[Rfam]
Rfam assigns this 116-nucleotide sequence from Alkalihalobacillus alcalophilus to the family "SAM riboswitch aptamer (S box leader)". The source organism's lineage runs through Bacteria, Bacillati, Bacillota, Bacilli and Alkalihalobacillus alcalophilus. The match comes from Rfam's covariance-model search (80 bits).

RNA sequence: AACUUAUCUAGAGUGGCGGAGGGAACUGACCCGAAGAAGCCCGGCAACCUAUUUGCUUGCCAAGCAAAUAAAGGUGCUACAUUCAGCAGGAUGCUAGUCAUUCUGAAAGAUAAGAA
Numbered sequence: 001a002a003c004u005u006a007u008c009u010a011g012a013g014u015g016g017c018g019g020a021g022g023g024a025a026c027u028g029a030c031c032c033g034a035a036g037a038a039g040c041c042c043g044g045c046a047a048c049c050u051a052u053u054u055g056c057u058u059g060c061c062a063a064g065c066a067a068a069u070a071a072a073g074g075u076g077c078u079a080c081a082u083u084c085a086g087c088a089g090g091a092u093g094c095u096a097g098u099c100a101u102u103c104u105g106a107a108a109g110a111u112a113a114g115a116a
Stems, first nucleotide, its partner, number of pairs: 003114006013042001015041003021032003026086004043078004048074002050070007082108001087105006